[Rfam]
RNA sequence: GUGCCCUUCGAUGAUUAAUAAUAUAUUAAUGGUUAAAAGUAGUCUGAUAUCUUAUUGAUGAAUAUUUCAAAUCCGAGGGCUU
Numbered sequence: 001g002u003g004c005c006c007u008u009c010g011a012u013g014a015u016u017a018a019u020a021a022u023a024u025a026u027u028a029a030u031g032g033u034u035a036a037a038a039g040u041a042g043u044c045u046g047a048u049a050u051c052u053u054a055u056u057g058a059u060g061a062a063u064a065u066u067u068c069a070a071a072u073c074c075g076a077g078g079g080c081u082u
Stems, first nucleotide, its partner, number of pairs: 001082001003080004
The family of this 82-nucleotide sequence from Arabidopsis thaliana is "Small nucleolar RNA R21". The family's consensus secondary structure was predicted with PFOLD. A search with the family's covariance model found it, with a score of 51 bits. Its family is annotated with RNA processing and nucleolus in the Gene Ontology.